[Rfam]
RNA sequence: ACUCAACAUUUAUUUUCUUUAAAAAGGGUGAGUUUAGAUUGUAAAAGCAAGCCCUACUCGUAUAGGGAUCCUUGAUCAGUCUGUUAGCCCUAAACCUGUUUACCGGAGUUU
Numbered sequence: 001a002c003u004c005a006a007c008a009u010u011u012a013u014u015u016u017c018u019u020u021a022a023a024a025a026g027g028g029u030g031a032g033u034u035u036a037g038a039u040u041g042u043a044a045a046a047g048c049a050a051g052c053c054c055u056a057c058u059c060g061u062a063u064a065g066g067g068a069u070c071c072u073u074g075a076u077c078a079g080u081c082u083g084u085u086a087g088c089c090c091u092a093a094a095c096c097u098g099u100u101u102a103c104c105g106g107a108g109u110u111u
Stems, first nucleotide, its partner, number of pairs: 025091005036082005045073003052067004

The record is a 111-nucleotide sequence from Maribacter sp. ACAM166, which matches "6S-Flavo RNA" in Rfam.
Rfam classes the family as a small RNA.
Lineage of the source: Bacteria > Bacteroidota > Flavobacteriales > Flavobacteriaceae > Maribacter.